[Rfam]
RNA sequence: GGCUUAAAGCGUCCGUAGUCGGUUUGGCAAGUUCUCUGUGAAAUCCUGCAGCUUAACUGUAGGGCUUGCAGAGAAUACUACCAGACUUGAGGUCGGGAAGGGUCAGGGGUAUUCAUGGGGUAGCGGUGAAAUGUAUUGAUCCCAUGAGGACCACCUGUGGCGAAGGCGCCUGACUGGAACGAGCCUGACGAUGAGGGACGAAAGCUAGGGGAGCAAACCGGAUCAGAUACCCGGGUAGUCCUAGCCGUAAACGAUGUGGCCUGAAUGUUGCAGGAAUCUUCGUGUUUCUGCAGUGUUGAAGGGAAACCGUUAAGGCCACCGCCUGGGGAGUAUGGUCGCAAGUCUGAAACUUAAAGGAAU
Numbered sequence: 001g002g003c004u005u006a007a008a009g010c011g012u013c014c015g016u017a018g019u020c021g022g023u024u025u026g027g028c029a030a031g032u033u034c035u036c037u038g039u040g041a042a043a044u045c046c047u048g049c050a051g052c053u054u055a056a057c058u059g060u061a062g063g064g065c066u067u068g069c070a071g072a073g074a075a076u077a078c079u080a081c082c083a084g085a086c087u088u089g090a091g092g093u094c095g096g097g098a099a100g101g102g103u104c105a106g107g108g109g110u111a112u113u114c115a116u117g118g119g120g121u122a123g124c125g126g127u128g129a130a131a132u133g134u135a136u137u138g139a140u141c142c143c144a145u146g147a148g149g150a151c152c153a154c155c156u157g158u159g160g161c162g163a164a165g166g167c168g169c170c171u172g173a174c175u176g177g178a179a180c181g182a183g184c185c186u187g188a189c190g191a192u193g194a195g196g197g198a199c200g201a202a203a204g205c206u207a208g209g210g211g212a213g214c215a216a217a218c219c220g221g222a223u224c225a226g227a228u229a230c231c232c233g234g235g236u237a238g239u240c241c242u243a244g245c246c247g248u249a250a251a252c253g254a255u256g257u258g259g260c261c262u263g264a265a266u267g268u269u270g271c272a273g274g275a276a277u278c279u280u281c282g283u284g285u286u287u288c289u290g291c292a293g294u295g296u297u298g299a300a301g302g303g304a305a306a307c308c309g310u311u312a313a314g315g316c317c318a319c320c321g322c323c324u325g326g327g328g329a330g331u332a333u334g335g336u337c338g339c340a341a342g343u344c345u346g347a348a349a350c351u352u353a354a355a356g357g358a359a360u
Base pairs, nucleotide, nucleotide: 001323002322003321009320011199012198013197014196016193018192019191020190022086023085024084025083026082027081030079031078032075033074034073035072036071037070038069039068040067045063046062047061048060049059050058051057090186091185092184093182094181095180101175102174103173104172105171106170107169108152109151112148113147114146115145116144117143118142119141123134124133125132160167161166204245205244206243207242208241209240213239214238218234219233220232221231256319257318258317259316260315261314264297265296266295267294268293269292270291271290272289273288274287275286276285278284301308302307325352326351327350334345335344337342
Dot-bracket structure: (((.....(.((((.(.(((.((((((..(((((((((((....(((((((.....)))))))...)))))))))..)).))))))...((((((.....(((((((((..((((((((...(((......)))......))))))))..)).......((....)).)))))))....))).)))...))))..))))....((((((...((...((((.........))))...))))))))..........((((((..(((((((((((((.(.....))))))))))))))...((....)).....)))))))))).(((......((.(....).))....)))........
Background
This 360-nucleotide part of an RNA from Candidatus Altarchaeales archaeon WOR_SM1_SCG belongs to the Rfam family "Archaeal small subunit ribosomal RNA". A reference for the family is Yusupov et al. (2001), "Crystal structure of the ribosome at 5.5 A resolution", Science. Its Rfam clan is "SSU clan". Lineage of the source: Archaea > Nanobdellati > Candidatus Altarchaeota > Candidatus Altarchaeia > Candidatus Altarchaeales. The match comes from Rfam's covariance-model search (1452 bits).